[Rfam]
RNA sequence: GCCUGGUGGUUCCUUGAGUCAGCUAACAAGUGCUGAACUUUGGGUUUUUUGUUAACAGGCAAAUAUUGAUUCUGCGAUUUUAUGCAUGGAAGCUGCCACUUCAGCAGCCUUCCAUAGCCCGGUCGCAGAUACACUG
Numbered sequence: 001g002c003c004u005g006g007u008g009g010u011u012c013c014u015u016g017a018g019u020c021a022g023c024u025a026a027c028a029a030g031u032g033c034u035g036a037a038c039u040u041u042g043g044g045u046u047u048u049u050u051g052u053u054a055a056c057a058g059g060c061a062a063a064u065a066u067u068g069a070u071u072c073u074g075c076g077a078u079u080u081u082a083u084g085c086a087u088g089g090a091a092g093c094u095g096c097c098a099c100u101u102c103a104g105c106a107g108c109c110u111u112c113c114a115u116a117g118c119c120c121g122g123u124c125g126c127a128g129a130u131a132c133a134c135u136g
Base pairs, nucleotide, nucleotide: 001060002059003058004057007051008050012044013043014042016040017039019036020035021034022033023032072128074126075125076124077123078122079121084118085117086115087114088113089112091110092109093107094106095105096104
Dot-bracket structure: ((((..((...(((.((.(((((........)))))..)).))).....)).....))))...........(.((((((....((((((.((((((.......)))).)).)))).))..)))))).)........
Small nucleolar RNA SNORA84: a 136-nucleotide RNA from Labrus bergylta. Lineage of the source: Eukaryota > Actinopterygii > Percomorphaceae > Labriformes > Labrus. The family's consensus secondary structure was predicted with WAR. A search with the family's covariance model found it, with a score of 90 bits.